[Rfam]
RNA sequence: AUGCAAAUCGCCUGAUGGCUACUUGUAGGUAUGCGAAUAUAUAUAGGCUAGUGAAUAUGCCUCCCCGGCAUAACAGGAAGA
Numbered sequence: 001a002u003g004c005a006a007a008u009c010g011c012c013u014g015a016u017g018g019c020u021a022c023u024u025g026u027a028g029g030u031a032u033g034c035g036a037a038u039a040u041a042u043a044u045a046g047g048c049u050a051g052u053g054a055a056u057a058u059g060c061c062u063c064c065c066c067g068g069c070a071u072a073a074c075a076g077g078a079a080g081a
Base pairs, nucleotide, nucleotide: 018052019051020050023046024045025044026043027042029040030039031038032037056072057071058070059069060068061067
The family of this 81-nucleotide sequence from Bacteroides ovatus is "Bacteroides-1 RNA". Lineage of the source: Bacteria > Pseudomonadati > Bacteroidota > Bacteroidia > Bacteroides ovatus. Pairs were carried over by alignment from the consensus structure, which is taken from published work.